[Rfam]
Shown here is a 132-nucleotide RNA from Mytilus galloprovincialis, a member of the family "Small nucleolar RNA SNORA57". The match comes from Rfam's covariance-model search (53 bits). On this family, see Vitali et al., Nucleic Acids Res 2003: "Identification of 13 novel human modification guide RNAs". NCBI's taxonomy places the organism under Eukaryota, Mollusca, Autobranchia, Mytiloidea, Mytilus. U99 belongs to the H/ACA class of snoRNAs which are thought to guide the sites of modification of uridines to pseudouridines, the target for this family is unknown.
RNA sequence: CCACCUAUUCUUGGCAUGUUAAGUAUUGAUUGGUAACUUACCAUGUAUUUGAUGGUGGUAUAUAAAAUGUGGACUGUCUUCGGUGCUGAAGUUCUGCAUACUUCAGAUCCCUCCUCUAUGUUCACAACAAAA
Numbered sequence: 001c002c003a004c005c006u007a008u009u010c011u012u013g014g015c016a017u018g019u020u021a022a023g024u025a026u027u028g029a030u031u032g033g034u035a036a037c038u039u040a041c042c043a044u045g046u047a048u049u050u051g052a053u054g055g056u057g058g059u060a061u062a063u064a065a066a067a068u069g070u071g072g073a074c075u076g077u078c079u080u081c082g083g084u085g086c087u088g089a090a091g092u093u094c095u096g097c098a099u100a101c102u103u104c105a106g107a108u109c110c111c112u113c114c115u116c117u118a119u120g121u122u123c124a125c126a127a128c129a130a131a132a
Stems, first nucleotide, its partner, number of pairs: 001058005015045004020040001022038003026035001070124005086106007